Rfam assigns this 137-nucleotide sequence to the family "Small nucleolar RNA SNORA4".
Clan: SNORA4 clan.
Rfam describes the family as follows. ACA4 is a member of the H/ACA class of snoRNA that guide the sites of modification of uridines to pseudouridines.
Rfam 15.1 lists 290 matches to the family in 136 species.
Rfam classes the family as an H/ACA-box small nucleolar RNA.
Rfam's curators put it in the seed alignment.
RNA sequence: UACCAAAAGUUAGCUUUUUGGGGGGCAGGUUUUUAAGUAACCUUUGCCAACUUGGGCUAUUUGGAAGAGUAAAAGACCACACUCCACAGUGGGCUAUACCACUUAGUAUAGUUCGCUACUAUUUUGUGGCCUACAUG
Numbered sequence: 001u002a003c004c005a006a007a008a009g010u011u012a013g014c015u016u017u018u019u020g021g022g023g024g025g026c027a028g029g030u031u032u033u034u035a036a037g038u039a040a041c042c043u044u045u046g047c048c049a050a051c052u053u054g055g056g057c058u059a060u061u062u063g064g065a066a067g068a069g070u071a072a073a074a075g076a077c078c079a080c081a082c083u084c085c086a087c088a089g090u091g092g093g094c095u096a097u098a099c100c101a102c103u104u105a106g107u108a109u110a111g112u113u114c115g116c117u118a119c120u121a122u123u124u125u126g127u128g129g130c131c132u133a134c135a136u137g
Stems, first nucleotide, its partner, number of pairs: 003064005011059006020052002024048004028042004074132002077129005088117012